RNA sequence: GAUAAACCGAUGAGCAGGAGUAAGUAAGAUUCUUCUAUCAUGCGCAGAGAGCUUCCGGAUGGUGUAAGGAAGCGUUGGUAAUGAGUCUGAAUGGACUUGCGAGGGCGGCUUGAAACCGGUAUUCAGGGAAAGCAGUUCUGUCUGAGAAGACAGGGGAUGCGUGAACUGGCCGGAAGUAGAUACCGACGGGUUUCCUAUCCGUUACCAAGGGGAGGCACAUGUUAGUGUGUUACAGAGCGGAUGAAUGAUAUAUUUAUUCAUCAAUCAGGGUGGUACCGCAGAAGAGAAUUUAUAGAGCUCCUGUCCCUCUU
Number, nucleotide and partner (000 for none) at each position: 001g000002a000003u000004a000005a000006a000007c104008c103009g000010a000011u000012g000013a000014g000015c099016a098017g097018g096019a000020g000021u000022a000023a000024g000025u000026a000027a088028g087029a086030u085031u084032c083033u000034u000035c000036u000037a000038u000039c000040a076041u000042g000043c000044g000045c000046a000047g000048a000049g000050a000051g073052c072053u071054u070055c069056c068057g000058g000059a000060u000061g000062g000063u000064g000065u000066a000067a000068g056069g055070a054071a053072g052073c051074g000075u000076u040077g000078g000079u000080a000081a000082u000083g032084a031085g030086u029087c028088u027089g000090a000091a000092u000093g000094g000095a000096c018097u017098u016099g015100c000101g000102a000103g008104g007105g000106c185107g184108g183109c000110u000111u180112g000113a000114a000115a000116c000117c000118g000119g000120u000121a000122u000123u000124c000125a000126g000127g000128g000129a000130a000131a000132g000133c000134a000135g000136u000137u000138c000139u000140g000141u000142c000143u000144g000145a000146g000147a000148a000149g000150a000151c000152a000153g000154g000155g000156g000157a000158u000159g000160c000161g000162u000163g000164a000165a000166c000167u000168g000169g000170c000171c000172g000173g000174a000175a000176g000177u000178a000179g000180a111181u000182a000183c108184c107185g106186a000187c201188g200189g199190g000191u000192u000193u000194c000195c000196u000197a000198u000199c189200c188201g187202u000203u000204a000205c000206c000207a000208a000209g000210g000211g000212g000213a000214g000215g000216c000217a000218c000219a000220u000221g000222u000223u000224a000225g000226u000227g000228u000229g000230u000231u000232a000233c000234a000235g000236a000237g000238c000239g000240g262241a261242u260243g259244a258245a257246u256247g255248a254249u000250a000251u000252a000253u000254u248255u247256a246257u245258u244259c243260a242261u241262c240263a000264a000265u000266c000267a308268g307269g306270g305271u000272g000273g000274u000275a000276c000277c000278g304279c303280a302281g301282a000283a000284g000285a000286g000287a000288a000289u000290u000291u000292a000293u000294a000295g000296a000297g000298c000299u000300c000301c281302u280303g279304u278305c270306c269307c268308u267309c000310u000311u000
T-box leader: a 311-nucleotide RNA sequence from Hungatella hathewayi. It scores 94 bits against the family's covariance model. The source organism's lineage runs through Bacteria, Bacillati, Clostridia, Lachnospirales and Hungatella. Uncharged tRNA acts as the effector for transcription antitermination of genes in the T-box leader family.